[Rfam]
RNA sequence: UUAACGUAAUUGCUUAAUUCAAAUUUGAAGCGGGGGACCCAAACGAUGGGGCGAAUUCCGAAAGGAUAGGGUAACUCUUUCAACCCGAGCCCGACAGCUAACCUCGUAGGCAUUGAAGGAGAGACCU
Numbered sequence: 001u002u003a004a005c006g007u008a009a010u011u012g013c014u015u016a017a018u019u020c021a022a023a024u025u026u027g028a029a030g031c032g033g034g035g036g037a038c039c040c041a042a043a044c045g046a047u048g049g050g051g052c053g054a055a056u057u058c059c060g061a062a063a064g065g066a067u068a069g070g071g072u073a074a075c076u077c078u079u080u081c082a083a084c085c086c087g088a089g090c091c092c093g094a095c096a097g098c099u100a101a102c103c104u105c106g107u108a109g110g111c112a113u114u115g116a117a118g119g120a121g122a123g124a125c126c127u
Stems, first nucleotide, its partner, number of pairs: 011112004018029003030107006040048002049092003057066003069086004
The record is a 127-nucleotide RNA from Anaerosolibacter carboniphilus, which matches "c-di-AMP riboswitch aptamer (ydaO/yuaA leader)" in Rfam. Rfam 15.1 lists 7,607 matches to the family in 2,262 species. Pairs were carried over by alignment from the consensus structure. Taxonomically the source falls in Anaerosolibacter (Bacteria, Bacillati, Bacillota, Clostridia). The match comes from Rfam's covariance-model search (99 bits).